A member of the RNA family "Plant signal recognition particle RNA" from Morus notabilis, 305 nucleotides long. Lineage of the source: Eukaryota > Viridiplantae > Euphyllophyta > eudicotyledons > Morus.
[Rfam]
RNA sequence: GCCGAGCUGGGUAGCGCUAGCUUGUGACUCGAGUGAGGGCAUUAAGGAUGGUUGGAAUGCAGUUCGGCCCACUAUGCAGGGCUGGAAGGUCGCGAUUUGUCGGCCCGCCCGGUCCAAGUCGUGAGUGGGCCAUGGGUCUCAAACGAAGGCUUGGGCCUCCUGGUCCCUAGAGAGGGGGGCACCGCGUGAGGCUGGUUUCACAGAGCAGCGAAAACCUUCCACUCAUGACAGUGGGCGGAUAACGGGCCGGCGCACCUGCAGUCCAGAUUGCCUUGUGGGCUGUCCUCAGCUGAACAACCAUCUUU
Number, nucleotide and partner (000 for none) at each position: 001g040002c039003c038004g023005a022006g021007c020008u019009g018010g017011g000012u000013a000014g000015c000016g000017c010018u009019a008020g007021c006022u005023u004024g000025u000026g000027a000028c037029u036030c035031g000032a000033g000034u000035g030036a029037g028038g003039g002040c001041a000042u000043u000044a305045a304046g303047g302048a301049u300050g299051g298052u297053u296054g295055g000056a000057a000058u292059g291060c289061a000062g287063u000064u000065c282066g281067g280068c279069c278070c277071a276072c275073u000074a273075u000076g271077c270078a269079g264080g263081g262082c261083u260084g259085g000086a257087a000088g256089g000090u000091c000092g253093c000094g000095a000096u000097u000098u000099g000100u250101c249102g248103g247104c246105c245106c244107g243108c000109c238110c237111g000112g236113u235114c234115c233116a232117a000118g229119u228120c227121g226122u225123g224124a223125g222126u221127g166128g165129g164130c163131c162132a161133u000134g159135g158136g157137u000138c155139u154140c153141a152142a151143a000144c149145g000146a000147a000148g000149g144150c000151u142152u141153g140154g139155g138156c000157c136158u135159c134160c000161u132162g131163g130164u129165c128166c127167c172168u000169a000170g000171a000172g167173a000174g219175g218176g217177g216178g215179g000180c000181a000182c000183c000184g000185c210186g209187u208188g000189a000190g000191g000192c203193u202194g201195g000196u000197u000198u000199c000200a000201c194202a193203g192204a000205g000206c000207a000208g187209c186210g185211a000212a000213a000214a000215c178216c177217u176218u175219c174220c000221a126222c125223u124224c123225a122226u121227g120228a119229c118230a000231g000232u116233g115234g114235g113236c112237g110238g109239a000240u000241a000242a000243c107244g106245g105246g104247c103248c102249g101250g100251c000252g000253c092254a000255c000256c088257u086258g000259c084260a083261g082262u081263c080264c079265a000266g000267a000268u000269u078270g077271c076272c000273u074274u000275g072276u071277g070278g069279g068280c067281u066282g065283u000284c000285c000286u000287c062288a000289g060290c000291u059292g058293a000294a000295c054296a053297a052298c051299c050300a049301u048302c047303u046304u045305u044

For this family Rfam cites "Towards the structure of the mammalian signal recognition particle" (Wild et al., Curr Opin Struct Biol, 2002). The match comes from Rfam's covariance-model search (224 bits).